[Rfam]
The record is a 180-nucleotide RNA sequence from Salinicoccus roseus, which matches "Lysine riboswitch aptamer" in Rfam.
Pairs were carried over by alignment from the consensus structure, which is taken from published work.
The literature on the family includes a 2003 paper in Cell by Mandal et al., "Riboswitches Control Fundamental Biochemical Pathways in Bacillus subtilis and Other Bacteria".
NCBI's taxonomy places the organism under Bacteria, Bacillati, Bacilli, Staphylococcaceae, Salinicoccus.
RNA sequence: UCAGUUGGAUGAGGCGCAUCAAUCAUCAGUAGCCACUUAAUAUAUAGUCUGCGAACUUUAAGUGUGUGAAAGGGUGCGAUGCCGAAAUGGCCUGCCGUUGCAGCGGCAAGCCAUUGGAUUUGAGGGUUAAGAGCUCCAGAUCUGUCAUUAUUUUUACAAUAAUGGAGUGCAUCACUUGUG
Numbered sequence: 001u002c003a004g005u006u007g008g009a010u011g012a013g014g015c016g017c018a019u020c021a022a023u024c025a026u027c028a029g030u031a032g033c034c035a036c037u038u039a040a041u042a043u044a045u046a047g048u049c050u051g052c053g054a055a056c057u058u059u060a061a062g063u064g065u066g067u068g069a070a071a072g073g074g075u076g077c078g079a080u081g082c083c084g085a086a087a088u089g090g091c092c093u094g095c096c097g098u099u100g101c102a103g104c105g106g107c108a109a110g111c112c113a114u115u116g117g118a119u120u121u122g123a124g125g126g127u128u129a130a131g132a133g134c135u136c137c138a139g140a141u142c143u144g145u146c147a148u149u150a151u152u153u154u155u156a157c158a159a160u161a162a163u164g165g166a167g168u169g170c171a172u173c174a175c176u177u178g179u180g
Base pairs, nucleotide, nucleotide: 008173009172010171011170016082017081018080019079020078024074032067033066034064035063036062037061038060039059086115087114088113089112090111091110093108094107095106096105097104116143117142118141119140120139121138122137124136125135126134127133145165146164147163148162149161150160151159